[Rfam]
RNA: c-di-AMP riboswitch aptamer (ydaO/yuaA leader)
RNA sequence: UCGCCAGCACCACCCAGAUCCACCCAGGCGAACCGGGGACCCACCGAACCACUGGGGUGAAUCACCCCUGGCUGCACGCGGGCCGGGGGAGUAGGGCGUCUUCCCGCCCGAACCCGUCAGCUGACCCGGUAGGCGGCCAGACGGAAGAA
Numbered sequence: 001u002c003g004c005c006a007g008c009a010c011c012a013c014c015c016a017g018a019u020c021c022a023c024c025c026a027g028g029c030g031a032a033c034c035g036g037g038g039a040c041c042c043a044c045c046g047a048a049c050c051a052c053u054g055g056g057g058u059g060a061a062u063c064a065c066c067c068c069u070g071g072c073u074g075c076a077c078g079c080g081g082g083c084c085g086g087g088g089g090a091g092u093a094g095g096g097c098g099u100c101u102u103c104c105c106g107c108c109c110g111a112a113c114c115c116g117u118c119a120g121c122u123g124a125c126c127c128g129g130u131a132g133g134c135g136g137c138c139a140g141a142c143g144g145a146a147g148a149a
Stems, first nucleotide, its partner, number of pairs: 001031005032130006042054002055115003063091001065089009094109004